[Rfam]
RNA sequence: AUUGAGAGUUUGAGGCCAUAGCAAAAGCACUCAUGGUGCAGCCAUGUCAGAUUCCAACAAUAUGUGAAUUCUGCU
Numbered sequence: 001a002u003u004g005a006g007a008g009u010u011u012g013a014g015g016c017c018a019u020a021g022c023a024a025a026a027g028c029a030c031u032c033a034u035g036g037u038g039c040a041g042c043c044a045u046g047u048c049a050g051a052u053u054c055c056a057a058c059a060a061u062a063u064g065u066g067a068a069u070u071c072u073g074c075u
Stems, first nucleotide, its partner, number of pairs: 014043003020075004025070002027039003048064002051061003
A member of the RNA family "Mammalian CPEB3 ribozyme" from Alligator mississippiensis, 75 nucleotides long. It scores 40 bits against the family's covariance model. Taxonomically the source falls in Alligator (Eukaryota, Eumetazoa, Bilateria, Alligatoridae).